[Rfam]
RNA sequence: GGUCGGCAAACUUCCGCUUCAGGGCCUUCUGAAGACCCGAAGUACAGUUUUUGGAGGCCCCUCUGAGGAGGUGCG
Numbered sequence: 001g002g003u004c005g006g007c008a009a010a011c012u013u014c015c016g017c018u019u020c021a022g023g024g025c026c027u028u029c030u031g032a033a034g035a036c037c038c039g040a041a042g043u044a045c046a047g048u049u050u051u052u053g054g055a056g057g058c059c060c061c062u063c064u065g066a067g068g069a070g071g072u073g074c075g
Stems, first nucleotide, its partner, number of pairs: 022038003026034003057074002060071004
The record is a 75-nucleotide RNA sequence from Parascaris univalens, which matches "SmY spliceosomal RNA" in Rfam. The organism belongs to Parascaris, within Eukaryota. The family's consensus secondary structure is taken from published work.